[Rfam]
RNA: ZMP/ZTP riboswitch aptamer (pfl RNA motif)
RNA sequence: UCGCCAUCGACGACUGGCGAGGGUGGAUCACCACCGGGAAGUUCGAUCGCGAGCAUCGCCCGCCUGGGUGCUCCGG
Numbered sequence: 001u002c003g004c005c006a007u008c009g010a011c012g013a014c015u016g017g018c019g020a021g022g023g024u025g026g027a028u029c030a031c032c033a034c035c036g037g038g039a040a041g042u043u044c045g046a047u048c049g050c051g052a053g054c055a056u057c058g059c060c061c062g063c064c065u066g067g068g069u070g071c072u073c074c075g076g
Stems, first nucleotide, its partner, number of pairs: 007045001009043003014038002016064004023034004053071005